[Rfam]
RNA sequence: UCUGGACCGGCACACGCACCGCCGGUGGCUAUCCUGGCCGCCCAUCCGCCAGGAAACC
Numbered sequence: 001u002c003u004g005g006a007c008c009g010g011c012a013c014a015c016g017c018a019c020c021g022c023c024g025g026u027g028g029c030u031a032u033c034c035u036g037g038c039c040g041c042c043c044a045u046c047c048g049c050c051a052g053g054a055a056a057c058c
Stems, first nucleotide, its partner, number of pairs: 006026006033053006